[Rfam]
RNA: chrB-a RNA
Organism: Pseudorhizobium banfieldiae
RNA sequence: CUCAUGGGGCUUGCGAUCACCCCACGAGGCCACGGCUGAAGAAUCGCGUCCUUAAAACCCGAGCAAACGGAGGGACGCGCUAUG
Numbered sequence: 001c002u003c004a005u006g007g008g009g010c011u012u013g014c015g016a017u018c019a020c021c022c023c024a025c026g027a028g029g030c031c032a033c034g035g036c037u038g039a040a041g042a043a044u045c046g047c048g049u050c051c052u053u054a055a056a057a058c059c060c061g062a063g064c065a066a067a068c069g070g071a072g073g074g075a076c077g078c079g080c081u082a083u084g
Base pairs, nucleotide, nucleotide: 005024006023007022008021009020046078047077048076049075050074051073052072053071